[Rfam]
RNA: MIR398 microRNA precursor family
RNA sequence: GCAGUUCCGGCGGGGGCGGACUGGGAACACAUGGGAAUGAGAUGAGAUCAUUGCUCGGUCGUGCUGGCCUGGGCCGUCGGCGCGCGUUGAUCUUGCAUGUGUUCUCAGGUCGCCCCCGGAGGGCCUUC
Numbered sequence: 001g002c003a004g005u006u007c008c009g010g011c012g013g014g015g016g017c018g019g020a021c022u023g024g025g026a027a028c029a030c031a032u033g034g035g036a037a038u039g040a041g042a043u044g045a046g047a048u049c050a051u052u053g054c055u056c057g058g059u060c061g062u063g064c065u066g067g068c069c070u071g072g073g074c075c076g077u078c079g080g081c082g083c084g085c086g087u088u089g090a091u092c093u094u095g096c097a098u099g100u101g102u103u104c105u106c107a108g109g110u111c112g113c114c115c116c117c118g119g120a121g122g123g124c125c126u127u128c
Base pairs, nucleotide, nucleotide: 007122008121011118012117013116014115016113017112018111019110023106024105025104026103027102028101029100030099031098032097